[Rfam]
RNA sequence: GAGACACCCCUAUGGAGCAGGACUUGCUUUAGUGGGACUUCGGUGCUUACUGAGUCUGCCCCUGAAUGUGUUGCU
Numbered sequence: 001g002a003g004a005c006a007c008c009c010c011u012a013u014g015g016a017g018c019a020g021g022a023c024u025u026g027c028u029u030u031a032g033u034g035g036g037a038c039u040u041c042g043g044u045g046c047u048u049a050c051u052g053a054g055u056c057u058g059c060c061c062c063u064g065a066a067u068g069u070g071u072u073g074c075u
Base pairs, nucleotide, nucleotide: 001074003072004071005070006069007068011064012063014062015061017059018058019057021056022055023054029053030052031051032050033049034048035047036046037044038043
Overview
mir-9229 microRNA precursor family: a 75-nucleotide RNA sequence from Myotis davidii. The base pairs follow the family's consensus structure, which was predicted with RNAalifold. Lineage of the source: Eukaryota > Eutheria > Boreoeutheria > Chiroptera > Myotis. The match comes from Rfam's covariance-model search (71 bits).